[Rfam]
RNA sequence: CUCUGGAGAGUGUUCACAAACCGUGAACCACCCAAGAAGAAAGUGGCAGGUAUGUCAUGAAACUUUCUGGUACCACUGACAGAG
Numbered sequence: 001c002u003c004u005g006g007a008g009a010g011u012g013u014u015c016a017c018a019a020a021c022c023g024u025g026a027a028c029c030a031c032c033c034a035a036g037a038a039g040a041a042a043g044u045g046g047c048a049g050g051u052a053u054g055u056c057a058u059g060a061a062a063c064u065u066u067c068u069g070g071u072a073c074c075a076c077u078g079a080c081a082g083a084g
Base pairs, nucleotide, nucleotide: 001084002083003082004081005080012028013027014026015025030071031070032069034066037065038064039063043058044057045056046055047054048053
RNA: Glycine riboswitch aptamer